[Rfam]
RNA sequence: AAGCCAACCAAUUAAUCUGCUCAUCUGAAUGGGUUUCUGCAGAAACUUAGAACAGAGCUGGCAAUAGUGAUACCAUUUUAUGAGCCUUAAGGACAGCUGAGGUCAUUUUGGUCCCUCGAAAUGACUACAACA
Number, nucleotide and partner (000 for none) at each position: 001a000002a000003g062004c061005c060006a059007a000008c000009c000010a000011a000012u000013u000014a000015a000016u043017c042018u041019g040020c039021u000022c000023a000024u000025c000026u000027g000028a000029a000030u000031g000032g000033g000034u000035u000036u000037c000038u000039g020040c019041a018042g017043a016044a000045a000046c000047u000048u000049a000050g000051a000052a000053c000054a000055g000056a000057g000058c000059u006060g005061g004062c003063a000064a000065u000066a000067g000068u000069g000070a000071u000072a000073c000074c123075a122076u000077u000078u000079u000080a000081u000082g000083a000084g112085c111086c110087u000088u000089a107090a106091g000092g104093a103094c102095a000096g000097c000098u000099g000100a000101g000102g094103u093104c092105a000106u090107u089108u000109u000110g086111g085112u084113c000114c000115c000116u000117c000118g000119a000120a000121a000122u075123g074124a000125c000126u000127a000128c000129a000130a000131c000132a000
RNA: Small nucleolar RNA SNORA33
Organism: Jaculus jaculus